Rfam assigns this 140-nucleotide sequence from Rubidibacter lacunae to the family "RT-14 RNA".

[Rfam]
RNA sequence: CUCUCCUGUACCAGAGCUGGCAGAUGGGAAUCUGUCGGGAGUGUCAGGGAGAGUCCAGACCGGUUCCGGCGAUGCGAAAGCAUCCAAAAAUAAAACCGGACCGGACAGCUUGGUAGGGAAACCGAAGAGUCGUCCGGUCC
Numbered sequence: 001c002u003c004u005c006c007u008g009u010a011c012c013a014g015a016g017c018u019g020g021c022a023g024a025u026g027g028g029a030a031u032c033u034g035u036c037g038g039g040a041g042u043g044u045c046a047g048g049g050a051g052a053g054u055c056c057a058g059a060c061c062g063g064u065u066c067c068g069g070c071g072a073u074g075c076g077a078a079a080g081c082a083u084c085c086a087a088a089a090a091u092a093a094a095a096c097c098g099g100a101c102c103g104g105a106c107a108g109c110u111u112g113g114u115a116g117g118g119a120a121a122c123c124g125a126a127g128a129g130u131c132g133u134c135c136g137g138u139c140c
Base pairs, nucleotide, nucleotide: 001053002052003051004050005049006048010044011043017038018037019036020035021034022033023032024031025030071084072083073082074081098140099139100138101137102136103135104134105133106132108130109129110128116123117122
Rfam classes the family as a small RNA. The organism belongs to Rubidibacter lacunae, within Bacteria. A search with the family's covariance model found it, with a score of 51 bits. The family's consensus secondary structure is taken from published work.